[Rfam]
RNA sequence: AAGAAUUGAAUAUCAUUACCUCGUAUAAUCUUGGGAAUAUGGCCCAUAAGUAUCUACCUAAUGACCGGAAAUUAUUAGACUAUGAGGGAGACUGCCGUGUGU
Numbered sequence: 001a002a003g004a005a006u007u008g009a010a011u012a013u014c015a016u017u018a019c020c021u022c023g024u025a026u027a028a029u030c031u032u033g034g035g036a037a038u039a040u041g042g043c044c045c046a047u048a049a050g051u052a053u054c055u056a057c058c059u060a061a062u063g064a065c066c067g068g069a070a071a072u073u074a075u076u077a078g079a080c081u082a083u084g085a086g087g088g089a090g091a092c093u094g095c096c097g098u099g100u101g102u
Stems, first nucleotide, its partner, number of pairs: 019087007029049001032046004058078007

Overview
The record is a 102-nucleotide sequence from Evansella cellulosilytica, which matches "Purine riboswitch aptamer" in Rfam. NCBI's taxonomy places the organism under Bacteria, Bacillati, Bacillota, Evansella, Evansella cellulosilytica. About the family: Riboswitches are metabolite binding domains within certain messenger RNAs that serve as precision sensors for their corresponding targets. Rfam links the family to the GO term purine nucleobase biosynthetic process.